[Rfam]
RNA sequence: UGUGGUUGAAGGUCUGUGCGCCCAGUAGACUUCUCCUGAUGGGAUGGUCAAAAAGCAGUGCUACACCAGUGCAGCAUUUGGCAUCCUUGGUUUCCAGUCUGCUGUGCCUGUUAAACCUGGUAUUUUUGUUGAAACAGUC
Numbered sequence: 001u002g003u004g005g006u007u008g009a010a011g012g013u014c015u016g017u018g019c020g021c022c023c024a025g026u027a028g029a030c031u032u033c034u035c036c037u038g039a040u041g042g043g044a045u046g047g048u049c050a051a052a053a054a055g056c057a058g059u060g061c062u063a064c065a066c067c068a069g070u071g072c073a074g075c076a077u078u079u080g081g082c083a084u085c086c087u088u089g090g091u092u093u094c095c096a097g098u099c100u101g102c103u104g105u106g107c108c109u110g111u112u113a114a115a116c117c118u119g120g121u122a123u124u125u126u127u128g129u130u131g132a133a134a135c136a137g138u139c
Base pairs, nucleotide, nucleotide: 002061003060004059006057014055015054017052019046020045022043023042024040026038027037028036064128065127068124069123070122072119073118074117080108081107082106083105084104
RNA: Small nucleolar RNA SNORA8
Organism: Camarhynchus parvulus